Source information: The family of this 246-nucleotide sequence from Nematostella vectensis is "Small nucleolar RNA SNORA73 family". By type it is an H/ACA-box small nucleolar RNA. About the family: U17 (SNORA73A and SNORA73B) also known as E1 belongs to the H/ACA class of small nucleolar RNAs (snoRNAs). Vertebrate U17 is intron-encoded and ranges in length from 200-230 nucleotides, longer than most snoRNAs. A reference for the family is Enright et al. (1996), "5'ETS rRNA processing facilitated by four small RNAs: U14, E3, U17, and U3", RNA. It scores 92 bits against the family's covariance model. Rfam 15.1 lists 2,326 matches to the family in 660 species. Gene Ontology terms of the family: RNA processing and nucleolus. Lineage of the source: Eukaryota > Eumetazoa > Cnidaria > Edwardsiidae > Nematostella.
Nucleotides: 246
Stems, first nucleotide, its partner, number of pairs: 001111007008041004013034002018027003045103004055096003058091001060089001062087001063084002173238007190224006199211004
Number, partner (000 for none) and nucleotide at each position: 001111c002110c003109a004108g005107u006106g007105u008041g009040g010039c011038a012000u013034c014033c015000u016000g017000u018027g019026g020025g021000c022000u023000g024000g025020c026019c027018c028000c029000u030000a031000c032000u033014g034013g035000c036000u037000c038011u039010g040009c041008c042000u043000u044000c045103a046102u047101g048100g049000c050000g051000c052000g053000a054000u055096g056095g057094a058091g059000c060089a061000a062087a063084g064083u065000g066000u067000u068000u069000a070000u071000u072000g073000c074000a075000c076000a077000c078000u079000u080000c081000c082000c083064a084063u085000g086000a087062u088000g089060u090000c091058u092000a093000u094057u095056c096055c097000u098000a099000g100048c101047c102046a103045u104000g105007a106006c107005a108004u109003u110002g111001g112000a113000g114000a115000u116000c117000a118000a119000a120000a121000c122000u123000g124000u125000c126000c127000c128000c129000a130000g131000g132000u133000a134000u135000c136000u137000u138000c139000a140000c141000a142000u143000u144000g145000u146000g147000u148000g149000u150000u151000g152000a153000u154000c155000u156000c157000u158000g159000g160000c161000u162000u163000g164000g165000u166000a167000c168000g169000g170000u171000g172000c173238a174237u175236u176235g177234c178233a179232u180000a181000u182000u183000c184000c185000u186000u187000g188000u189000g190224c191223u192222u193221c194220c195219c196000a197000g198000a199211g200210u201209c202208a203000c204000u205000u206000g207000u208202u209201g210200g211199c212000a213000c214000u215000g216000a217000c218000u219195g220194g221193g222192g223191g224190g225000a226000u227000a228000a229000a230000c231000c232179a233178u234177g235176c236175a237174a238173u239000g240000a241000a242000c243000a244000u245000c246000u